The record is a 139-nucleotide RNA sequence from Desulforamulus profundi, which matches "RT-14 RNA" in Rfam. By type it is a small RNA. Taxonomically the source falls in Desulforamulus (Bacteria, Bacillota, Clostridia, Peptococcaceae).
RNA sequence: CUCUCAUAGUCAAUGGCUAUAACCUCAUGGGGUUAUAGAUAGCACAGAGAGAACAAAGGGGCUCAUUCCCCUGCUGAAAAAGCAAAAUAUUGAAUUGCUAUAGAAGCAUCGAGUAAGUAAUGAAAGAUGCUACAUAUAG
Numbered sequence: 001c002u003c004u005c006a007u008a009g010u011c012a013a014u015g016g017c018u019a020u021a022a023c024c025u026c027a028u029g030g031g032g033u034u035a036u037a038g039a040u041a042g043c044a045c046a047g048a049g050a051g052a053a054c055a056a057a058g059g060g061g062c063u064c065a066u067u068c069c070c071c072u073g074c075u076g077a078a079a080a081a082g083c084a085a086a087a088u089a090u091u092g093a094a095u096u097g098c099u100a101u102a103g104a105a106g107c108a109u110c111g112a113g114u115a116a117g118u119a120a121u122g123a124a125a126g127a128u129g130c131u132a133c134a135u136a137u138a139g
Base pairs, nucleotide, nucleotide: 001051002050003049004048005047009045010044017038018037019036020035021034022033023032024031073083074082075081098139099138100137101136102135105131106130107129108128109127110126116121